Notes
Shown here is a 96-nucleotide sequence from Paspalum vaginatum, a member of the family "Small nucleolar RNA SNORD25". For this family Rfam cites "Identification of 10 novel snoRNA gene clusters from Arabidopsis thaliana" (Qu et al., Nucleic Acids Res, 2001).
[Rfam]
RNA sequence: GGUGACAGUGAUGAUUCCUUGCACAGUUACAGACCUGUGAUGAUUCCUGCGGAAAUGAUCGCACGAUUCAAAGAACAUCUAAGGGACUGAGUUGUC
Dot-bracket structure: .(((((....................................................................................))))).